Record summary:
This 86-nucleotide RNA sequence from Laticauda laticaudata belongs to the Rfam family "Mammalian CPEB3 ribozyme". A search with the family's covariance model found it, with a score of 39 bits. Taxonomically the source falls in Laticauda (Eukaryota, Teleostomi, Sauropsida, Bifurcata). Gene Ontology term of the family: RNA nuclease activity. The mammalian CPEB3 ribozyme is a self cleaving RNA located in the second intron of the CPEB3 gene which belongs to a family of genes regulating messenger RNA polyadenylation. The base pairs follow the family's consensus structure, which is taken from published work.

[Rfam]
RNA sequence: AGGGCCCCAUAUGGUGGGCCAUAGAAGGAGCAUUUCCACGUCGCGGCCCCCUGUCAGGUUAUCUGUUUUACCUUGCGAAUCCUUCC
Numbered sequence: 001a002g003g004g005c006c007c008c009a010u011a012u013g014g015u016g017g018g019c020c021a022u023a024g025a026a027g028g029a030g031c032a033u034u035u036c037c038a039c040g041u042c043g044c045g046g047c048c049c050c051c052u053g054u055c056a057g058g059u060u061a062u063c064u065g066u067u068u069u070a071c072c073u074u075g076c077g078a079a080u081c082c083u084u085c086c
Stems, first nucleotide, its partner, number of pairs: 013051001016049005024085006030044002055075004060070002